[Rfam]
RNA: Makes More Granules Regulator RNA (mmgR)
RNA sequence: GUUGUAUGCCCUUCUCGGGCGUUUCCUCCCUAGACUUGGGCCGCAUUUCGAUGCGGCCCCUUUUUUUGCCCGCA
Numbered sequence: 001g002u003u004g005u006a007u008g009c010c011c012u013u014c015u016c017g018g019g020c021g022u023u024u025c026c027u028c029c030c031u032a033g034a035c036u037u038g039g040g041c042c043g044c045a046u047u048u049c050g051a052u053g054c055g056g057c058c059c060c061u062u063u064u065u066u067u068g069c070c071c072g073c074a
Base pairs, nucleotide, nucleotide: 008020009019010018011017038059039058040057041056042055043054044053045052046051